[Rfam]
RNA sequence: GGGAAUAGGCCUCCCGGAGUCUGUUUGCAGGAGCUGACUCCAAAUCACCCGGUGCUGCUGCGUUCAAAAGGCGUGGUGUUGAGCGACCGUUGGAAAAGGCGCCGAUAUAAGGCUGCUCCUACCUAUACGUCAGCA
Numbered sequence: 001g002g003g004a005a006u007a008g009g010c011c012u013c014c015c016g017g018a019g020u021c022u023g024u025u026u027g028c029a030g031g032a033g034c035u036g037a038c039u040c041c042a043a044a045u046c047a048c049c050c051g052g053u054g055c056u057g058c059u060g061c062g063u064u065c066a067a068a069a070g071g072c073g074u075g076g077u078g079u080u081g082a083g084c085g086a087c088c089g090u091u092g093g094a095a096a097a098g099g100c101g102c103c104g105a106u107a108u109a110a111g112g113c114u115g116c117u118c119c120u121a122c123c124u125a126u127a128c129g130u131c132a133g134c135a
Base pairs, nucleotide, nucleotide: 001015002014003013004012016041017040018039019038020037021036023034024033025032026031045135048093049092050089051088052087053086054080057077058076059075061073062072063071064070098131099130100129101128
Dot-bracket structure: ((((.......))))((((((.((((....)))).))))))...(..(((((((..(((.((((.....)))).)))..).....))))..))....((((..........................))))...)